[Rfam]
Rfam assigns this 83-nucleotide RNA from Streptomyces naganishii to the family "Streptomyces RNA 6106". For this family Rfam cites "Deep sequencing-based identification of small non-coding RNAs in Streptomyces coelicolor" (Vockenhuber et al., RNA Biol, 2011). Identified by deep sequencing of transcriptome at the end of exponential growth phase. Appears smaller on northern blot than sequencing transcript. This indicates processing step. The source organism's lineage runs through Bacteria, Bacillati, Kitasatosporales, Streptomyces and Streptomyces naganishii.
RNA sequence: GCGUCGCUGCGUGCGGCACACGUGGCCGUCAAGGGCCAGUGAGCGGGGGUGGUGCCGUGUCGGCGCAGCACCACCCCCGUGCC
Numbered sequence: 001g002c003g004u005c006g007c008u009g010c011g012u013g014c015g016g017c018a019c020a021c022g023u024g025g026c027c028g029u030c031a032a033g034g035g036c037c038a039g040u041g042a043g044c045g046g047g048g049g050u051g052g053u054g055c056c057g058u059g060u061c062g063g064c065g066c067a068g069c070a071c072c073a074c075c076c077c078c079g080u081g082c083c
Stems, first nucleotide, its partner, number of pairs: 001019001003017005021041003025037001026035002043080013057066003